A member of the RNA family "SAM riboswitch aptamer (S box leader)" from Peribacillus psychrosaccharolyticus, 103 nucleotides long. The family's consensus secondary structure is taken from published work. Its family is annotated with regulation of gene expression in the Gene Ontology. About the family: The SAM riboswitch is found upstream of a number of genes which code for proteins involved in methionine or cysteine biosynthesis in Gram-positive bacteria. The source organism's lineage runs through Bacteria, Bacilli, Caryophanales, Bacillaceae and Peribacillus.
RNA sequence: UUCUUAUCCAGAGAGGUGGAGGGAUAUGGCCCUUUGAAACCUCGGCAACAGGUUCCUUGUGAAUACUGUGCCAAUUCCAUCAGGUUCGCCUGAUAGAUAAGAA
Number, nucleotide and partner (000 for none) at each position: 001u103002u102003c101004u100005u099006a098007u097008c096009c000010a000011g000012a000013g043014a042015g041016g040017u039018g000019g000020a000021g032022g031023g030024a000025u000026a080027u079028g078029g077030c023031c022032c021033u000034u000035u000036g000037a000038a000039a017040c016041c015042u014043c013044g072045g071046c070047a069048a000049c068050a067051g000052g064053u063054u062055c061056c000057u000058u000059g000060u000061g055062a054063a053064u052065a000066c000067u050068g049069u047070g046071c045072c044073a000074a000075u000076u095077c029078c028079a027080u026081c092082a091083g090084g089085u000086u000087c000088g000089c084090c083091u082092g081093a000094u000095a076096g008097a007098u006099a005100a004101g003102a002103a001